[Rfam]
RNA sequence: CCAAUGGGCUGCUCAGUAGUUGGUGUAGGAUCUGUCUGACAUUGUUACUAACAGCUACAUCUGAUUACUGGGUCUCCUAUGGCAUCA
Numbered sequence: 001c002c003a004a005u006g007g008g009c010u011g012c013u014c015a016g017u018a019g020u021u022g023g024u025g026u027a028g029g030a031u032c033u034g035u036c037u038g039a040c041a042u043u044g045u046u047a048c049u050a051a052c053a054g055c056u057a058c059a060u061c062u063g064a065u066u067a068c069u070g071g072g073u074c075u076c077c078u079a080u081g082g083c084a085u086c087a
Stems, first nucleotide, its partner, number of pairs: 013071006020064003023060006032054004
A member of the RNA family "mir-221 microRNA precursor family" from Sphenodon punctatus, 87 nucleotides long.
A reference for the family is Yao et al. (2008), "MicroRNA profile of Marek's disease virus-transformed T-cell line MSB-1: predominance of virus-encoded microRNAs", J Virol.
The organism belongs to Sphenodon, within Eukaryota.
Gene Ontology terms of the family: miRNA-mediated post-transcriptional gene silencing and RISC complex.